Notes: This 250-nucleotide sequence from Allacma fusca belongs to the Rfam family "RNase MRP". From the family's description: RNase MRP is an enzymatically active ribonucleoprotein with two distinct roles in eukaryotes. The literature on the family includes a 2005 paper in Biochem Biophys Res Commun by Walker and Avis, "Secondary structure probing of the human RNase MRP RNA reveals the potential for MRP RNA subsets".

RNA sequence: GAGGAUGUUACGUGUUCCACCGCCGGGGCAACGGGAGACACAGUCUUCAGCCCUGGGGAAAGUCCCCGGGCAUGGAGUAGAAAUACUCAGUGCUCUAACCGACACUGACCCAUCUAUCAAUAACUUUCUUACAGGCUGGGAUAUUAAUUUGGAGCUGGAAAGGUAGAUACAUGGUUUAGCCAUAUCGCAGUUUAAUGUGGAGGCUUCGGUUUCACGAAGUAACUCAAUGGGGAUUACACCGAAACAUUCU
Numbered sequence: 001g002a003g004g005a006u007g008u009u010a011c012g013u014g015u016u017c018c019a020c021c022g023c024c025g026g027g028g029c030a031a032c033g034g035g036a037g038a039c040a041c042a043g044u045c046u047u048c049a050g051c052c053c054u055g056g057g058g059a060a061a062g063u064c065c066c067c068g069g070g071c072a073u074g075g076a077g078u079a080g081a082a083a084u085a086c087u088c089a090g091u092g093c094u095c096u097a098a099c100c101g102a103c104a105c106u107g108a109c110c111c112a113u114c115u116a117u118c119a120a121u122a123a124c125u126u127u128c129u130u131a132c133a134g135g136c137u138g139g140g141a142u143a144u145u146a147a148u149u150u151g152g153a154g155c156u157g158g159a160a161a162g163g164u165a166g167a168u169a170c171a172u173g174g175u176u177u178a179g180c181c182a183u184a185u186c187g188c189a190g191u192u193u194a195a196u197g198u199g200g201a202g203g204c205u206u207c208g209g210u211u212u213c214a215c216g217a218a219g220u221a222a223c224u225c226a227a228u229g230g231g232g233a234u235u236a237c238a239c240c241g242a243a244a245c246a247u248u249c250u
Stems, first nucleotide, its partner, number of pairs: 002250008011241002015202006023056007034048006060235002064232004076087004088107005109173001115169004120164001124162004134156003143150001204219005